A member of the RNA family "MIR7504 microRNA precursor family" from Gossypium stocksii, 130 nucleotides long.
The family has 8 seed sequences and 7,343 matches in Rfam 15.1.

RNA sequence: AAUGGGAGAAUGACAAAUCAUAUUUUUCCUCAUGAUUUUUAGCAUUUUUAGUUAGAUUUAAUUUUAUUAGGAGAAAAAAGCUAAAAAUCAGGAAAUCAGGAGGAAAAAUCUGAUUUGUCAUUCUUUCAUU
Numbered sequence: 001a002a003u004g005g006g007a008g009a010a011u012g013a014c015a016a017a018u019c020a021u022a023u024u025u026u027u028c029c030u031c032a033u034g035a036u037u038u039u040u041a042g043c044a045u046u047u048u049u050a051g052u053u054a055g056a057u058u059u060a061a062u063u064u065u066a067u068u069a070g071g072a073g074a075a076a077a078a079a080g081c082u083a084a085a086a087a088u089c090a091g092g093a094a095a096u097c098a099g100g101a102g103g104a105a106a107a108a109u110c111u112g113a114u115u116u117g118u119c120a121u122u123c124u125u126u127c128a129u130u
Stems, first nucleotide, its partner, number of pairs: 001130020022109006029102003033098007042089001045086004